[Rfam]
RNA sequence: CGUGAGAAGGGCAAACCAGCCGUGAGGCUGGGACGCAAAACUACAGGGUCUCGUUCUAUUGAGACAGCCAGCUGCCAUCC
Numbered sequence: 001c002g003u004g005a006g007a008a009g010g011g012c013a014a015a016c017c018a019g020c021c022g023u024g025a026g027g028c029u030g031g032g033a034c035g036c037a038a039a040a041c042u043a044c045a046g047g048g049u050c051u052c053g054u055u056c057u058a059u060u061g062a063g064a065c066a067g068c069c070a071g072c073u074g075c076c077a078u079c080c
Base pairs, nucleotide, nucleotide: 003077004076011036012035016031017030018029019028020027021026034067039073041071042070046069047068048065049064050063
Dot-bracket structure: ..((......((...((((((....))))))..[))..(.((...(((((............))).])))).)..))...
This 80-nucleotide RNA sequence from Eubacterium pyruvativorans belongs to the Rfam family "c-di-GMP-I-GGC riboswitch aptamer". It scores 60 bits against the family's covariance model. Rfam links the family to the GO term cyclic-di-GMP binding. The literature on the family includes a 2009 paper in Nat Struct Mol Biol by Smith et al., "Structural basis of ligand binding by a c-di-GMP riboswitch". The family's consensus secondary structure is taken from published work.